[Rfam]
RNA sequence: AACCUAACCCUAUGGAUUAUCCAAAGGUAUGGUUGAAGUCUUACACAGUAAAAAACUCCUCGUGAGGAUUGCUGUGUAAGCCCUGUCGGGAAACUGGCAGUGGGUAGCUAAGCUACC
Dot-bracket structure: ((((....(((.(((.....))).)))...)))).....(((((((((((......((((....)))).)))))))))))..(((((((....)))))))..(((((.....)))))